[Rfam]
RNA sequence: AAAUGAAAAAGGCAUACUUGUCGAAAGACCAGGACGCAAAGCUAUGGGCCUAAGCAGCAAUUGCUGUAUGGCUGCCAAGCCGCCAUU
Numbered sequence: 001a002a003a004u005g006a007a008a009a010a011g012g013c014a015u016a017c018u019u020g021u022c023g024a025a026a027g028a029c030c031a032g033g034a035c036g037c038a039a040a041g042c043u044a045u046g047g048g049c050c051u052a053a054g055c056a057g058c059a060a061u062u063g064c065u066g067u068a069u070g071g072c073u074g075c076c077a078a079g080c081c082g083c084c085a086u087u
Stems, first nucleotide, its partner, number of pairs: 012037002017032002020029003041080003045077003048072003055066004